[Rfam]
RNA sequence: GAUCAGUGAUGAAAUUAGCCAAAUCUGAGUGUUUGUAGUCAUGACUACAAAACCCAUGAUUAUGCUAGAGA
Numbered sequence: 001g002a003u004c005a006g007u008g009a010u011g012a013a014a015u016u017a018g019c020c021a022a023a024u025c026u027g028a029g030u031g032u033u034u035g036u037a038g039u040c041a042u043g044a045c046u047a048c049a050a051a052a053c054c055c056a057u058g059a060u061u062a063u064g065c066u067a068g069a070g071a
Base pairs, nucleotide, nucleotide: 029055031053032052033051037046038045039044
RNA: Small nucleolar RNA U2-19